This 80-nucleotide RNA from Eptatretus burgeri belongs to the Rfam family "mir-26 microRNA precursor family". Its family is annotated with miRNA-mediated post-transcriptional gene silencing and RISC complex in the Gene Ontology. For this family Rfam cites "Identification of tissue-specific microRNAs from mouse" (Lagos-Quintana et al., Curr Biol, 2002). Taxonomically the source falls in Eptatretus (Eukaryota, Bilateria, Vertebrata, Myxini). Rfam 15.1 lists 2,251 matches to the family in 645 species. Pairs were carried over by alignment from the consensus structure, which was predicted with RNAalifold.

[Rfam]
RNA sequence: CUUGGUUCUCGUUCAAGUAAUCCAGGAUAGGCUGUAUGCCUUUGCUAAGCCUGUCCUCGGUUGCUUGGACCAGAUGCAGU
Number, nucleotide and partner (000 for none) at each position: 001c000002u079003u078004g077005g000006u000007u074008c073009u072010c000011g070012u069013u000014c067015a066016a065017g064018u063019a062020a061021u060022c059023c000024a057025g056026g055027a054028u053029a052030g051031g050032c049033u048034g000035u000036a000037u000038g000039c000040c000041u000042u000043u000044g000045c000046u000047a000048a033049g032050c031051c030052u029053g028054u027055c026056c025057u024058c000059g022060g021061u020062u019063g018064c017065u016066u015067g014068g000069a012070c011071c000072a009073g008074a007075u000076g000077c004078a003079g002080u000